Description
The record is a 110-nucleotide RNA sequence from Clostridium sp. HMP27, which matches "Glycine riboswitch aptamer" in Rfam. It scores 61 bits against the family's covariance model.

RNA sequence: GUGAAGGGUAUAAGAGAGAGCUUAAAGUUUUAAGCCGCCGAAGGGACAAACUUUAUUUUAUCCCAAUGAAAUAAAGUGAAAUUCUCAGGCAAAGGGAUUAUAUCUGGAUA
Numbered sequence: 001g002u003g004a005a006g007g008g009u010a011u012a013a014g015a016g017a018g019a020g021c022u023u024a025a026a027g028u029u030u031u032a033a034g035c036c037g038c039c040g041a042a043g044g045g046a047c048a049a050a051c052u053u054u055a056u057u058u059u060a061u062c063c064c065a066a067u068g069a070a071a072u073a074a075a076g077u078g079a080a081a082u083u084c085u086c087a088g089g090c091a092a093a094g095g096g097a098u099u100a101u102a103u104c105u106g107g108a109u110a
Stems, first nucleotide, its partner, number of pairs: 006105008020035004037090003040086002044084003050077012